The family of this 87-nucleotide sequence from Gossypium mustelinum is "MIR7486 microRNA precursor family". The source organism's lineage runs through Eukaryota, Streptophytina, Spermatophyta, Malvoideae and Gossypium.
RNA sequence: CCUGAGGGCGCGCUUUGCCUACGUGGCAACAAAGCGCGCUUACAUGGACGUGCUUUGUUGCCACGUAUGCAAAGUGCGCUGACGUGG
Numbered sequence: 001c002c003u004g005a006g007g008g009c010g011c012g013c014u015u016u017g018c019c020u021a022c023g024u025g026g027c028a029a030c031a032a033a034g035c036g037c038g039c040u041u042a043c044a045u046g047g048a049c050g051u052g053c054u055u056u057g058u059u060g061c062c063a064c065g066u067a068u069g070c071a072a073a074g075u076g077c078g079c080u081g082a083c084g085u086g087g
Stems, first nucleotide, its partner, number of pairs: 001086001003084002007080012020067002023064016040047002
Dot-bracket structure: (.((..((((((((((((.((.((((((((((((((((.((....)).)))))))))))))))).)).))))))))))))..)).).